[Rfam]
RNA sequence: CAAGUGACCCUGCGGUGCUGGCGGACCCCCGACCUGGCAGCACUGCGGGGUUUUCCA
Number, nucleotide and partner (000 for none) at each position: 001c000002a000003a000004g054005u000006g000007a051008c050009c049010c048011u047012g046013c045014g044015g043016u042017g041018c040019u039020g038021g000022c036023g000024g000025a000026c000027c000028c000029c000030c000031g000032a000033c000034c000035u000036g022037g000038c020039a019040g018041c017042a016043c015044u014045g013046c012047g011048g010049g009050g008051u007052u000053u000054u004055c000056c000057a000
F6 TB sRNA: a 57-nucleotide sequence from Actinoalloteichus hoggarensis. On this family, see Arnvig and Young, Mol Microbiol 2009: "Identification of small RNAs in Mycobacterium tuberculosis". Rfam classes the family as a small RNA.